RNA: L31-Actinobacteria ribosomal protein leader
Organism: Rhodococcus sp. AD45
RNA sequence: CCGGUUCCGGUUCACGAUGUCGAUCGGCGACGUCGACCCGGCGACC
Numbered sequence: 001c002c003g004g005u006u007c008c009g010g011u012u013c014a015c016g017a018u019g020u021c022g023a024u025c026g027g028c029g030a031c032g033u034c035g036a037c038c039c040g041g042c043g044a045c046c
Stems, first nucleotide, its partner, number of pairs: 003046003007041004015035008